Group II catalytic intron D1-D4-6: a 220-nucleotide sequence from Adhaeretor mobilis. Group II introns are found in rRNA, tRNA and mRNA of organelles in fungi, plants and protists, and also in mRNA in bacteria. Gene Ontology term of the family: Group II intron splicing. NCBI's taxonomy places the organism under Bacteria, Pseudomonadati, Planctomycetota, Pirellulales, Adhaeretor.

RNA sequence: CGAGAACCCCGUCCAGUAGAGCUUGACCAGUAACUGGAAGCGAGUCUUGCGUGGUGUCGGGCAACCGCUACUGCGAAGCGUAGACAGCGAGUCCGAAAGCCAUGCUAUUGAGCGUCGAAAGACCCAAUCGCGGGAGCCUUUGCCUUUCGAUGACCAAGGGCCACGCUACUGCACCGUAAUGGUCUGGUGCAAACAGUCCUGCCGGCGUCGGUUAAGAACA
Numbered sequence: 001c002g003a004g005a006a007c008c009c010c011g012u013c014c015a016g017u018a019g020a021g022c023u024u025g026a027c028c029a030g031u032a033a034c035u036g037g038a039a040g041c042g043a044g045u046c047u048u049g050c051g052u053g054g055u056g057u058c059g060g061g062c063a064a065c066c067g068c069u070a071c072u073g074c075g076a077a078g079c080g081u082a083g084a085c086a087g088c089g090a091g092u093c094c095g096a097a098a099g100c101c102a103u104g105c106u107a108u109u110g111a112g113c114g115u116c117g118a119a120a121g122a123c124c125c126a127a128u129c130g131c132g133g134g135a136g137c138c139u140u141u142g143c144c145u146u147u148c149g150a151u152g153a154c155c156a157a158g159g160g161c162c163a164c165g166c167u168a169c170u171g172c173a174c175c176g177u178a179a180u181g182g183u184c185u186g187g188u189g190c191a192a193a194c195a196g197u198c199c200u201g202c203c204g205g206c207g208u209c210g211g212u213u214a215a216g217a218a219c220a
Stems, first nucleotide, its partner, number of pairs: 012038005021031003025184003040088002044085004048080002050075007058067003109214001110209001112208006130202006136161003141156002166196002170192001171190005